[Rfam]
RNA: Plastid-ndhJ 3UTR RNA
RNA sequence: UUAUUAACUUUGUACUGCGCAUAUUAAUUAGAUAGGUUCUAGAAGGGCAUAUAGGAA
Numbered sequence: 001u002u003a004u005u006a007a008c009u010u011u012g013u014a015c016u017g018c019g020c021a022u023a024u025u026a027a028u029u030a031g032a033u034a035g036g037u038u039c040u041a042g043a044a045g046g047g048c049a050u051a052u053a054g055g056a057a
Base pairs, nucleotide, nucleotide: 019037020036022034023033024032025031